The record is a 48-nucleotide sequence from Lacipirellula parvula, which matches "Acido-Lenti-1 RNA" in Rfam. The family's consensus secondary structure is taken from published work. Rfam classes the family as a small RNA. NCBI's taxonomy places the organism under Bacteria, Planctomycetota, Planctomycetia, Lacipirellulaceae, Lacipirellula.
RNA sequence: CCAGGGGCUAACGCCCCUGGCUACACCAUGCCGCCCCCGCCGGGGGCU
Numbered sequence: 001c002c003a004g005g006g007g008c009u010a011a012c013g014c015c016c017c018u019g020g021c022u023a024c025a026c027c028a029u030g031c032c033g034c035c036c037c038c039g040c041c042g043g044g045g046g047c048u
Stems, first nucleotide, its partner, number of pairs: 001020008033047005